[Rfam]
RNA sequence: AGGGUAGUAUCUUUUUAGAACUACACCGGUAAGUUACUUUUUUAAAUUAAAUAGUCUGCCUUGAUCUAUGAAUGACAGGGACGGAGAA
Numbered sequence: 001a002g003g004g005u006a007g008u009a010u011c012u013u014u015u016u017a018g019a020a021c022u023a024c025a026c027c028g029g030u031a032a033g034u035u036a037c038u039u040u041u042u043u044a045a046a047u048u049a050a051a052u053a054g055u056c057u058g059c060c061u062u063g064a065u066c067u068a069u070g071a072a073u074g075a076c077a078g079g080g081a082c083g084g085a086g087a088a
Stems, first nucleotide, its partner, number of pairs: 002027002004024005010019002056084003059080005065075002
RNA: pan motif